[Rfam]
RNA sequence: GUGGGCUAUGGUGACAUUUACCCUAAAACACUGUUAGGGAAAAUUGUGGGUGGCCUCUGCUGUAUUGCAGGAGUCCUGGUAAUUGCCCUUCCUAUACCCAUCAUUGUGAACAAU
Numbered sequence: 001g002u003g004g005g006c007u008a009u010g011g012u013g014a015c016a017u018u019u020a021c022c023c024u025a026a027a028a029c030a031c032u033g034u035u036a037g038g039g040a041a042a043a044u045u046g047u048g049g050g051u052g053g054c055c056u057c058u059g060c061u062g063u064a065u066u067g068c069a070g071g072a073g074u075c076c077u078g079g080u081a082a083u084u085g086c087c088c089u090u091c092c093u094a095u096a097c098c099c100a101u102c103a104u105u106g107u108g109a110a111c112a113a114u
Stems, first nucleotide, its partner, number of pairs: 001114002004111001007108005013102002019096002037077004049063001
Dot-bracket structure: ((.(..(((((.((....((................((((........(.............)..........)))).................))....)).)))))..).))
Shown here is a 114-nucleotide sequence from Mesocricetus auratus, a member of the family "Potassium channel RNA editing signal".
For this family Rfam cites "Control of human potassium channel inactivation by editing of a small mRNA hairpin" (Bhalla et al., Nat Struct Mol Biol, 2004).
A search with the family's covariance model found it, with a score of 82 bits.
This family represents a group of sequences related to the human potassium channel Kv1.1 hairpin element which directs the efficient modification of an adenosine to inosine by an adenosine deaminase acting on RNA (ADAR).